[Rfam]
Source information: The record is an 83-nucleotide RNA sequence from Acipenser ruthenus, which matches "mir-19 microRNA precursor family" in Rfam. Clan: mir-19 clan. The match comes from Rfam's covariance-model search (67 bits). The base pairs follow the family's consensus structure, which was predicted with RNAalifold. The literature on the family includes a 2001 paper in Science by Lagos-Quintana et al., "Identification of novel genes coding for small expressed RNAs". Rfam links the family to the GO terms RISC complex and miRNA-mediated post-transcriptional gene silencing.
RNA sequence: GUCUCCAGUGAGUUUUGCAGGGUUGCAGUCAGCCUGUGCCUCUCUGUGCCGCUGUGCAAACCCAUGCAAAACUGACUGUGGCC
Numbered sequence: 001g002u003c004u005c006c007a008g009u010g011a012g013u014u015u016u017g018c019a020g021g022g023u024u025g026c027a028g029u030c031a032g033c034c035u036g037u038g039c040c041u042c043u044c045u046g047u048g049c050c051g052c053u054g055u056g057c058a059a060a061c062c063c064a065u066g067c068a069a070a071a072c073u074g075a076c077u078g079u080g081g082c083c
Base pairs, nucleotide, nucleotide: 003081004080006078007077008076009075011073012072013071014070015069016068017067018066019065020063021062023059024058025057026056027055031053032052033051